[Rfam]
RNA sequence: AGAACCCUAUCGAUAUUGUCUCUGCUGUGUAAAUCGCUCUGAGUAGUGCAAUAUUGCUUAUAGGGUUUU
Numbered sequence: 001a002g003a004a005c006c007c008u009a010u011c012g013a014u015a016u017u018g019u020c021u022c023u024g025c026u027g028u029g030u031a032a033a034u035c036g037c038u039c040u041g042a043g044u045a046g047u048g049c050a051a052u053a054u055u056g057c058u059u060a061u062a063g064g065g066u067u068u069u
Stems, first nucleotide, its partner, number of pairs: 001069010011056009022046005